[Rfam]
RNA sequence: GGCGGCCGUAUUCCACUACGGAUCGUCGGGCACGUACCUGCCCGUGGAAAGGAUUAUUU
Numbered sequence: 001g002g003c004g005g006c007c008g009u010a011u012u013c014c015a016c017u018a019c020g021g022a023u024c025g026u027c028g029g030g031c032a033c034g035u036a037c038c039u040g041c042c043c044g045u046g047g048a049a050a051g052g053a054u055u056a057u058u059u
Stems, first nucleotide, its partner, number of pairs: 009051001011049005027044006

Shown here is a 59-nucleotide RNA from Propionicimonas paludicola, a member of the family "msiK RNA". A search with the family's covariance model found it, with a score of 61 bits. Rfam classes the family as a cis-regulatory element.